Rfam assigns this 105-nucleotide RNA from Neobacillus rhizophilus to the family "TPP riboswitch aptamer (THI element)". About the family: Vitamin B(1) in its active form thiamin pyrophosphate (TPP) is an essential coenzyme that is synthesised by coupling of pyrimidine and thiazole moieties in bacteria. The match comes from Rfam's covariance-model search (76 bits).

[Rfam]
RNA sequence: GAACUUCACUGGGGGAAGCCUUAAAGGCUUGAGAUGGGGCACGGCUCCGAACCCUUUGAACCUGAACUGGAUGAUACCAGCGGAGGGAAGUGGAACGAUCAGAAC
Number, nucleotide and partner (000 for none) at each position: 001g000002a000003a000004c000005u000006u093007c092008a091009c090010u089011g055012g054013g053014g052015g000016a000017a029018g028019c027020c026021u025022u000023a000024a000025a021026g020027g019028c018029u017030u000031g000032a000033g000034a000035u000036g048037g047038g046039g045040c044041a000042c000043g000044g040045c039046u038047c037048c036049g000050a000051a000052c014053c013054c012055u011056u000057u000058g000059a000060a000061c086062c085063u084064g000065a000066a000067c080068u079069g078070g077071a000072u000073g000074a000075u000076a000077c070078c069079a068080g067081c000082g000083g000084a063085g062086g061087g000088a000089a010090g009091u008092g007093g006094a000095a000096c000097g000098a000099u000100c000101a000102g000103a000104a000105c000